The family of this 121-nucleotide sequence from Robiginitalea myxolifaciens is "Bacteroidete tryptophan peptide leader RNA". It scores 53 bits against the family's covariance model. The organism belongs to Robiginitalea, within Bacteria. The family's RNA type in Rfam is cis-regulatory leader. Rfam links the family to the GO terms regulation of gene expression and S-adenosylmethionine metabolic process.

[Rfam]
RNA sequence: CUUUCUAUAUUUGAAUCGAAAUGAGAAACAAUAUGGUACAUAACUGGUGGUGGUCCCUGAAGAGCGAAAAUUCGUGACUUGAGACCCUCCUGUUUGUAUCUUAUAUAAUAAAAGGCUUGUC
Numbered sequence: 001c002u003u004u005c006u007a008u009a010u011u012u013g014a015a016u017c018g019a020a021a022u023g024a025g026a027a028a029c030a031a032u033a034u035g036g037u038a039c040a041u042a043a044c045u046g047g048u049g050g051u052g053g054u055c056c057c058u059g060a061a062g063a064g065c066g067a068a069a070a071u072u073c074g075u076g077a078c079u080u081g082a083g084a085c086c087c088u089c090c091u092g093u094u095u096g097u098a099u100c101u102u103a104u105a106u107a108a109u110a111a112a113a114g115g116c117u118u119g120u121c
Stems, first nucleotide, its partner, number of pairs: 036101001038099001040097004045092003049088002052085001057083002060080003063072002